[Rfam]
RNA sequence: UGAAAAAGAAUAGUUGUACCGUAGACAGUAGGUGCCCUUGGGCUUAAUAUCCUACCGAGGUGUGUUAUACGUGUUUAUACUAAUAAACAAUAUACCUCCAUGUCUUGAUUUACAUGGAGGUUUUUAUGUGAUUAC
Numbered sequence: 001u002g003a004a005a006a007a008g009a010a011u012a013g014u015u016g017u018a019c020c021g022u023a024g025a026c027a028g029u030a031g032g033u034g035c036c037c038u039u040g041g042g043c044u045u046a047a048u049a050u051c052c053u054a055c056c057g058a059g060g061u062g063u064g065u066u067a068u069a070c071g072u073g074u075u076u077a078u079a080c081u082a083a084u085a086a087a088c089a090a091u092a093u094a095c096c097u098c099c100a101u102g103u104c105u106u107g108a109u110u111u112a113c114a115u116g117g118a119g120g121u122u123u124u125u126a127u128g129u130g131a132u133u134a135c
Stems, first nucleotide, its partner, number of pairs: 028055005034043003095120009
Ribosomal protein L10 leader: a 135-nucleotide RNA from Priestia taiwanensis.
By type it is a cis-regulatory leader.
This family is a putative r-protein leader autoregulatory structure found in B. subtilis and other low-GC Gram-positive bacteria.
It scores 90 bits against the family's covariance model.
Pairs were carried over by alignment from the consensus structure, which was predicted with CMfinder.